[Rfam]
The record is a 160-nucleotide sequence from Microbacterium sp. ABRD28, which matches "FMN riboswitch aptamer (RFN element)" in Rfam. Lineage of the source: Bacteria > Bacillati > Actinomycetota > Microbacteriaceae > Microbacterium.

RNA sequence: AACGUGCUCCGGGGUCGGUGAGAAUCCGAACCGGCGGUCAGAGUCCGCGAGCGACGGCGUCGCAUCCGAAAGGGUGUCGCCCGACCUGAUCCGGUGGAAUUCCGGAACCGACGGUGAUGCGAGGGAAGGUCCUCGCGAGUCCGGAUGGGAGAAGCACGUC
Number, nucleotide and partner (000 for none) at each position: 001a000002a159003c158004g157005u156006g155007c154008u153009c151010c000011g000012g000013g000014g000015u000016c028017g027018g026019u000020g000021a000022g000023a000024a000025u000026c018027c017028g016029a000030a000031c000032c110033g109034g048035c047036g046037g045038u000039c000040a000041g000042a000043g108044u107045c037046c036047g035048c034049g000050a000051g086052c000053g000054a000055c000056g000057g000058c000059g000060u000061c000062g000063c000064a000065u000066c000067c000068g000069a000070a000071a000072g000073g000074g000075u000076g000077u000078c000079g000080c000081c000082c000083g000084a000085c000086c051087u000088g000089a000090u106091c105092c104093g103094g102095u000096g000097g000098a000099a000100u000101u000102c094103c093104g092105g091106a090107a044108c043109c033110g032111a000112c143113g142114g141115u000116g000117a000118u000119g000120c000121g000122a000123g000124g000125g000126a000127a000128g000129g000130u000131c000132c000133u000134c000135g000136c000137g000138a000139g000140u000141c114142c113143g112144g000145a000146u000147g000148g000149g000150a000151g009152a000153a008154g007155c006156a005157c004158g003159u002160c000